Record summary
This 82-nucleotide RNA sequence from Chanos chanos belongs to the Rfam family "mir-26 microRNA precursor family". The family has 82 seed sequences and 2,251 matches in Rfam 15.1. Rfam links the family to the GO terms RISC complex and miRNA-mediated post-transcriptional gene silencing. Pairs were carried over by alignment from the consensus structure, which was predicted with RNAalifold. NCBI's taxonomy places the organism under Eukaryota, Chordata, Teleostei, Ostariophysi, Chanos.
[Rfam]
RNA sequence: CUGUGACCUGGUUCAAGUAAUCCAGGAUAGGCUGUGUCGUCAUCAGGUUGGCCUGUUCUCGGUUACUUGCACUGGGCAGCAG
Numbered sequence: 001c002u003g004u005g006a007c008c009u010g011g012u013u014c015a016a017g018u019a020a021u022c023c024a025g026g027a028u029a030g031g032c033u034g035u036g037u038c039g040u041c042a043u044c045a046g047g048u049u050g051g052c053c054u055g056u057u058c059u060c061g062g063u064u065a066c067u068u069g070c071a072c073u074g075g076g077c078a079g080c081a082g
Stems, first nucleotide, its partner, number of pairs: 002081003007076006014069009024059010